[Rfam]
RNA: SAM riboswitch aptamer (S box leader)
RNA sequence: UUCCCAUCCAGAGCGGCCGAGAGACCUGGCUUGUUGACGCCGCAGCAACCGUCCAACGUACUGUCCCUGUCCCGCAGGUGCGGCAGUGCAGAGGAACGGUGCUACCGCCAGAAACGAUGGAAA
Dot-bracket structure: ((.(((((....(((((...(((..[[[[)))......)))))((((.((.((.......................................))...))))))...(]]]]...)))))).))
Numbered sequence: 001u002u003c004c005c006a007u008c009c010a011g012a013g014c015g016g017c018c019g020a021g022a023g024a025c026c027u028g029g030c031u032u033g034u035u036g037a038c039g040c041c042g043c044a045g046c047a048a049c050c051g052u053c054c055a056a057c058g059u060a061c062u063g064u065c066c067c068u069g070u071c072c073c074g075c076a077g078g079u080g081c082g083g084c085a086g087u088g089c090a091g092a093g094g095a096a097c098g099g100u101g102c103u104a105c106c107g108c109c110a111g112a113a114a115c116g117a118u119g120g121a122a123a
Stems, first nucleotide, its partner, number of pairs: 001123002004120005013043005021032003026111004044103004049099002052094002107115001